[Rfam]
A member of the RNA family "Fluoride riboswitch aptamer (crcB RNA motif)", 83 nucleotides long.

Nucleotides: 083
Stems, first nucleotide, its partner, number of pairs: 010025004016074006053064003
Number, partner (000 for none) and nucleotide at each position: 001000a002000a003000g004000u005000a006000a007000a008000c009000a010025g011024g012023c013022u014000a015000u016074g017073g018072c019071a020070u021069c022013a023012g024011c025010c026000u027000a028000g029000g030000c031000a032000u033000c034000u035000a036000g037000u038000a039000u040000u041000a042000g043000u044000g045000c046000c047000u048000g049000a050000a051000c052000c053064g054063c055062c056000c057000c058000c059000a060000g061000u062055g063054g064053c065000u066000g067000a068000u069021g070020a071019u072018g073017c074016c075000u076000a077000c078000c079000g080000u081000a082000u083000u